[Rfam]
RNA sequence: UGGUUUAGAAGUAGAGAAUGUGCUGCUACGCACCCUUUGGGUCAAAAGAAAUGUGGAAUUGACACACCACCGUAACCA
Numbered sequence: 001u002g003g004u005u006u007a008g009a010a011g012u013a014g015a016g017a018a019u020g021u022g023c024u025g026c027u028a029c030g031c032a033c034c035c036u037u038u039g040g041g042u043c044a045a046a047a048g049a050a051a052u053g054u055g056g057a058a059u060u061g062a063c064a065c066a067c068c069a070c071c072g073u074a075a076c077c078a
Stems, first nucleotide, its partner, number of pairs: 001078005008071001011029004019064003031048001032042004053070004